[Rfam]
RNA sequence: GGAAUAUAAGAACCCGUCUCUUAACUUUUAACUAAAAAAGCUAAGAACCGGUUCUUAUAGUUUUAAGAACCGAUUCUUAACUUUUUUAGUUAAAGGUUAAGAGACGGGUUCUUAUAUUCC
Numbered sequence: 001g002g003a004a005u006a007u008a009a010g011a012a013c014c015c016g017u018c019u020c021u022u023a024a025c026u027u028u029u030a031a032c033u034a035a036a037a038a039a040g041c042u043a044a045g046a047a048c049c050g051g052u053u054c055u056u057a058u059a060g061u062u063u064u065a066a067g068a069a070c071c072g073a074u075u076c077u078u079a080a081c082u083u084u085u086u087u088a089g090u091u092a093a094a095g096g097u098u099a100a101g102a103g104a105c106g107g108g109u110u111c112u113u114a115u116a117u118u119c120c
Stems, first nucleotide, its partner, number of pairs: 001120039042079006

Shown here is a 120-nucleotide RNA from Brassica oleracea, a member of the family "MIR9563 microRNA precursor family". Lineage of the source: Eukaryota > Mesangiospermae > rosids > Brassiceae > Brassica oleracea. The base pairs follow the family's consensus structure, which was predicted with RNAalifold. Rfam links the family to the GO terms miRNA-mediated post-transcriptional gene silencing and RISC complex.